[Rfam]
RNA sequence: CCAUAUCUUCAGGGCAGGGUGCAAUUCCCUACCGGCGGUAAUUUUACUUCGUAUGCGCCAAGUAAGAAAGCCCGCGAGCGCUUUUUCUAAUGAAGAAGGUCAGCAGAUUUGGUGUGAUUCCAAAGCCGACGGUACAGUCCGGAUGAAAGAAGAUAAAC
Numbered sequence: 001c002c003a004u005a006u007c008u009u010c011a012g013g014g015c016a017g018g019g020u021g022c023a024a025u026u027c028c029c030u031a032c033c034g035g036c037g038g039u040a041a042u043u044u045u046a047c048u049u050c051g052u053a054u055g056c057g058c059c060a061a062g063u064a065a066g067a068a069a070g071c072c073c074g075c076g077a078g079c080g081c082u083u084u085u086u087c088u089a090a091u092g093a094a095g096a097a098g099g100u101c102a103g104c105a106g107a108u109u110u111g112g113u114g115u116g117a118u119u120c121c122a123a124a125g126c127c128g129a130c131g132g133u134a135c136a137g138u139c140c141g142g143a144u145g146a147a148a149g150a151a152g153a154u155a156a157a158c
Stems, first nucleotide, its partner, number of pairs: 004155007017029003031138002033128002035075004070126002078104002108124005130141003
RNA: FMN riboswitch aptamer (RFN element)